Shown here is an 89-nucleotide RNA, a member of the family "GA-cis RNA".
RNA sequence: GAGCGGAGGGCGCAUAGGAAUCUCAGAUUCCUAUUUAGGAUGCGCCCGACAACCUGCCGACGAGCGUAUGCGAGUGGGCGAUACCCGAG
Numbered sequence: 001g002a003g004c005g006g007a008g009g010g011c012g013c014a015u016a017g018g019a020a021u022c023u024c025a026g027a028u029u030c031c032u033a034u035u036u037a038g039g040a041u042g043c044g045c046c047c048g049a050c051a052a053c054c055u056g057c058c059g060a061c062g063a064g065c066g067u068a069u070g071c072g073a074g075u076g077g078g079c080g081a082u083a084c085c086c087g088a089g
Base pairs, nucleotide, nucleotide: 008047009046010045011044012043013042016032017031018030019029020028021027056079057078058077060075061074064071065070